The family of this 215-nucleotide RNA from Miscanthus lutarioriparius is "MIR6217 microRNA precursor family". The organism belongs to Miscanthus, within Eukaryota.
RNA sequence: UAGCUACAAAAUAACUUAUUCUGUAGACACAUUGAGUUACGAUAAUUAUUAUAUUAAUUUACGAGAUUAUUAAGUGAUUUACUAUAAUAUUAUGGUAAAUAUCUCCGUGUGUUAUAGUAACCCGACUAUCAUAAAUAUGUAUUGAUAUUAUCGUAAACUAGUAUAUAAAAUUAUCGUAAAUGGAGGUGGCUAUGGAAUAACUUAUUUUGUAGCUG
Numbered sequence: 001u002a003g004c005u006a007c008a009a010a011a012u013a014a015c016u017u018a019u020u021c022u023g024u025a026g027a028c029a030c031a032u033u034g035a036g037u038u039a040c041g042a043u044a045a046u047u048a049u050u051a052u053a054u055u056a057a058u059u060u061a062c063g064a065g066a067u068u069a070u071u072a073a074g075u076g077a078u079u080u081a082c083u084a085u086a087a088u089a090u091u092a093u094g095g096u097a098a099a100u101a102u103c104u105c106c107g108u109g110u111g112u113u114a115u116a117g118u119a120a121c122c123c124g125a126c127u128a129u130c131a132u133a134a135a136u137a138u139g140u141a142u143u144g145a146u147a148u149u150a151u152c153g154u155a156a157a158c159u160a161g162u163a164u165a166u167a168a169a170a171u172u173a174u175c176g177u178a179a180a181u182g183g184a185g186g187u188g189g190c191u192a193u194g195g196a197a198u199a200a201c202u203u204a205u206u207u208u209g210u211a212g213c214u215g
Stems, first nucleotide, its partner, number of pairs: 001215014016200011028188003032184002037179011050165007058157005065152003069148002074129003078125002080119011094104002
It scores 149 bits against the family's covariance model. The family's consensus secondary structure was predicted with RNAalifold. Gene Ontology terms of the family: miRNA-mediated post-transcriptional gene silencing and RISC complex.